A member of the RNA family "mir-15 microRNA precursor family" from Callorhinchus milii, 83 nucleotides long. Its Rfam clan is "mir-15 clan". About the family: This family represents the related mir-15a and mir-15b sequences. In humans miR-15a and miR-16 are clustered within 0.5 kb at 13q14. This region has been shown to be deleted in more than half of B cell chronic lymphocytic leukaemias (CLL). Both miR-15a and miR-16 are deleted or down-regulated in more than two thirds of CLL cases. The mature sequence is excised from the 5' arm of the hairpin. Lineage of the source: Eukaryota > Metazoa > Eumetazoa > Chimaeriformes > Callorhinchus.
Nucleotides: 083
Base pairs, nucleotide, nucleotide: 002082003081004080005079006078013071014070016068017067018066019065020064021063022062023061026058027057028056029055030054031053032052033051034050035049
Number, partner (000 for none) and nucleotide at each position: 001000c002082u003081u004080u005079g006078u007000g008000g009000u010000g011000a012000u013071g014070u015000a016068g017067c018066a019065g020064c021063a022062c023061a024000u025000a026058a027057u028056g029055g030054u031053u032052u033051g034050u035049g036000a037000g038000u039000u040000g041000u042000a043000u044000g045000g046000a047000g048000a049035u050034a051033c052032a053031g054030g055029c056028c057027a058026u059000g060000u061023u062022g063021u064020g065019c066018u067017g068016c069000c070014a071013u072000a073000u074000g075000a076000a077000c078006a079005c080004a081003a082002g083000a